[Rfam]
RNA sequence: GGGGCUGAACGGUUUCGACUGCGUACGUCGAUUCAGGGGAAGCGUGUCGGUGCAGGCAGGAGACCACCGUAAGCGUCGCUGUAACCCAAUAAGCGCCGAUUCUCAUCAGCGCGACUACGCUCUCGCUGCCUAAGCAGUAGAGCGUGUCUGUCAGCCCGGGUUCGCCCUCGGCCCGGUCACUGGCAUCAGCUAGAGGGCUCCACCGUCCGCCUCGGUCGCGGAGGCGGACGGGACAUCGCACAGCGACUGGGAUCGUCAUCUCGGCUUGUUCGCGUGACCGAGAGAUCCGAGCAGAGGCAUAGCGAACUGCACACGGAGAAGCCCUGAAGAAGCGGCGGAGGACCCGGGUUCGAUUCCCGGCAGCUCCACUG
Numbered sequence: 001g002g003g004g005c006u007g008a009a010c011g012g013u014u015u016c017g018a019c020u021g022c023g024u025a026c027g028u029c030g031a032u033u034c035a036g037g038g039g040a041a042g043c044g045u046g047u048c049g050g051u052g053c054a055g056g057c058a059g060g061a062g063a064c065c066a067c068c069g070u071a072a073g074c075g076u077c078g079c080u081g082u083a084a085c086c087c088a089a090u091a092a093g094c095g096c097c098g099a100u101u102c103u104c105a106u107c108a109g110c111g112c113g114a115c116u117a118c119g120c121u122c123u124c125g126c127u128g129c130c131u132a133a134g135c136a137g138u139a140g141a142g143c144g145u146g147u148c149u150g151u152c153a154g155c156c157c158g159g160g161u162u163c164g165c166c167c168u169c170g171g172c173c174c175g176g177u178c179a180c181u182g183g184c185a186u187c188a189g190c191u192a193g194a195g196g197g198c199u200c201c202a203c204c205g206u207c208c209g210c211c212u213c214g215g216u217c218g219c220g221g222a223g224g225c226g227g228a229c230g231g232g233a234c235a236u237c238g239c240a241c242a243g244c245g246a247c248u249g250g251g252a253u254c255g256u257c258a259u260c261u262c263g264g265c266u267u268g269u270u271c272g273c274g275u276g277a278c279c280g281a282g283a284g285a286u287c288c289g290a291g292c293a294g295a296g297g298c299a300u301a302g303c304g305a306a307c308u309g310c311a312c313a314c315g316g317a318g319a320a321g322c323c324c325u326g327a328a329g330a331a332g333c334g335g336c337g338g339a340g341g342a343c344c345c346g347g348g349u350u351c352g353a354u355u356c357c358c359g360g361c362a363g364c365u366c367c368a369c370u371g
Base pairs, nucleotide, nucleotide: 001367002366003365004364005363006362007361019340020339022337023336024335028331032328033327034326035325036324037323038322043315044314045313046312047311048069049068050067051066052065056082057081058080059079121141122140123139125138126137127136128135129134149185150184151183152182153181154180156176157175158173159172161170164198165197166196167195168194169193203231204230205229206228207227208226209225210224211223214248215247216246217245218244219243250288251287252286253285254284256283257282259280263279264278268307269306270305271304275301276300344360345359346358347357348356
Background: A member of the RNA family "transfer-messenger RNA" from Nocardia wallacei, 371 nucleotides long. Rfam describes the family as follows. Bacterial tmRNA, also known as 10Sa RNA or SsrA, is named for its dual tRNA and mRNA-like properties. The source organism's lineage runs through Bacteria, Actinomycetota, Actinomycetes, Nocardiaceae and Nocardia. Rfam classes the family as a non-coding RNA gene. It scores 138 bits against the family's covariance model. Its Rfam clan is "tRNA clan".